Annotation
A member of the RNA family "Group II catalytic intron D1-D4-1" from Sulfobacillus sp. hq2, 84 nucleotides long.
[Rfam]
Nucleotides: 084
Stems, first nucleotide, its partner, number of pairs: 002024001005022007038045002047084003056077006
Number, partner (000 for none) and nucleotide at each position: 001000a002024a003000a004000g005022g006021c007020g008019c009018a010017c011016c012000g013000c014000a015000a016011g017010g018009u019008g020007c021006g022005c023000g024002u025000g026000a027000c028000g029000g030000g031000a032000g033000a034000g035000a036000a037000g038045u039044c040000a041000g042000c043000c044039g045038a046000g047084g048083c049082c050000a051000u052000a053000c054000u055000a056077g057076g058075c059074c060073c061072g062000c063000g064000u065000g066000g067000c068000c069000g070000c071000g072061c073060g074059g075058g076057c077056u078000g079000a080000a081000g082049g083048g084047c
Gene Ontology term of the family: Group II intron splicing. Lineage of the source: Bacteria > Bacillota > Clostridia > Eubacteriales > Sulfobacillus.